[Rfam]
RNA sequence: UUCUUAUCAAGAGAAGCGGAGGGAACUGGCCCAGUGAAGCUUCAGCAACCAGCCAAUGUUUUAUUGGCCAGGUGCUAAAUCCAGCGAAUUGGUUUCAAUUCGGCAGAUAAGAA
Numbered sequence: 001u002u003c004u005u006a007u008c009a010a011g012a013g014a015a016g017c018g019g020a021g022g023g024a025a026c027u028g029g030c031c032c033a034g035u036g037a038a039g040c041u042u043c044a045g046c047a048a049c050c051a052g053c054c055a056a057u058g059u060u061u062u063a064u065u066g067g068c069c070a071g072g073u074g075c076u077a078a079a080u081c082c083a084g085c086g087a088a089u090u091g092g093u094u095u096c097a098a099u100u101c102g103g104c105a106g107a108u109a110a111g112a113a
Base pairs, nucleotide, nucleotide: 001113002112003111004110005109006108007107008106013043014042015041016040017039021032022031023030026084027083028082029081044076045075046074047073049072050071052068053067054066055065080105085102086101087100088099089098090097
Rfam assigns this 113-nucleotide RNA from Thermaerobacillus caldiproteolyticus to the family "SAM riboswitch aptamer (S box leader)". It scores 95 bits against the family's covariance model. Pairs were carried over by alignment from the consensus structure, which is taken from published work.